[Rfam]
RNA sequence: GGGGGCGGUUAGGGUACUGGUGUCUCUCCCGGUCUUCAAAACCGCGCGUACGGCAUGACUGUCGUAGCUGGGUUCGAUUCCCAGACGCUCCC
Numbered sequence: 001g002g003g004g005g006c007g008g009u010u011a012g013g014g015u016a017c018u019g020g021u022g023u024c025u026c027u028c029c030c031g032g033u034c035u036u037c038a039a040a041a042c043c044g045c046g047c048g049u050a051c052g053g054c055a056u057g058a059c060u061g062u063c064g065u066a067g068c069u070g071g072g073u074u075c076g077a078u079u080c081c082c083a084g085a086c087g088c089u090c091c092c
Stems, first nucleotide, its partner, number of pairs: 001092007009084001012027003016023002028046001030044004049066005069083004
Rfam assigns this 92-nucleotide RNA from Desulfuribacillus stibiiarsenatis to the family "Selenocysteine transfer RNA". The match comes from Rfam's covariance-model search (61 bits). Gene Ontology term of the family: triplet codon-amino acid adaptor activity.